[Rfam]
RNA sequence: UGCUGUUGCCCUUCUUGGGCGUUUCCUCCCUAAACUUCGGGCCGCUGGCAACAGCGGCCUUUUUUCUUGGUCGCA
Numbered sequence: 001u002g003c004u005g006u007u008g009c010c011c012u013u014c015u016u017g018g019g020c021g022u023u024u025c026c027u028c029c030c031u032a033a034a035c036u037u038c039g040g041g042c043c044g045c046u047g048g049c050a051a052c053a054g055c056g057g058c059c060u061u062u063u064u065u066c067u068u069g070g071u072c073g074c075a
Stems, first nucleotide, its partner, number of pairs: 008020004039060009
This 75-nucleotide sequence from Microvirga guangxiensis belongs to the Rfam family "Makes More Granules Regulator RNA (mmgR)". The literature on the family includes a 2014 paper in RNA Biol by Torres-Quesada et al., "Genome-wide profiling of Hfq-binding RNAs uncovers extensive post-transcriptional rewiring of major stress response and symbiotic regulons in Sinorhizobium meliloti". The pairing is the family consensus, mapped onto this sequence. Its Rfam clan is "suhB sRNA clan".